[Rfam]
This 150-nucleotide RNA sequence from Artemisia annua belongs to the Rfam family "Small nucleolar RNA F1/F2/snoR5a". It scores 64 bits against the family's covariance model. The source organism's lineage runs through Eukaryota, Tracheophyta, Mesangiospermae, Asteroideae and Artemisia. This family contains F1, F2 and snoR5a sequences, all of which are members of the the H/ACA class of snoRNA that guide the sites of modification of uridines to pseudouridines. Gene Ontology terms of the family: nucleolus and RNA processing. The base pairs follow the family's consensus structure, which was predicted with PFOLD.
RNA sequence: AAAUGCCCUAUGGUAUCUGAUUCCUUGACAAAAUAUAUAUGUCAAGGUAUCUCGUUUUAUUGGGCAGAAAGUGAUGACAACAGGCAUUUGCGACACAGUUUGCUUAAGUUAUUCCAAAGCAUAUCUGUUACUUUAAUCCUGUUCACAUUU
Numbered sequence: 001a002a003a004u005g006c007c008c009u010a011u012g013g014u015a016u017c018u019g020a021u022u023c024c025u026u027g028a029c030a031a032a033a034u035a036u037a038u039a040u041g042u043c044a045a046g047g048u049a050u051c052u053c054g055u056u057u058u059a060u061u062g063g064g065c066a067g068a069a070a071g072u073g074a075u076g077a078c079a080a081c082a083g084g085c086a087u088u089u090g091c092g093a094c095a096c097a098g099u100u101u102g103c104u105u106a107a108g109u110u111a112u113u114c115c116a117a118a119g120c121a122u123a124u125c126u127g128u129u130a131c132u133u134u135a136a137u138c139c140u141g142u143u144c145a146c147a148u149u150u
Stems, first nucleotide, its partner, number of pairs: 004066005009059001019051003023047007031040001079143005095128004099123001101121004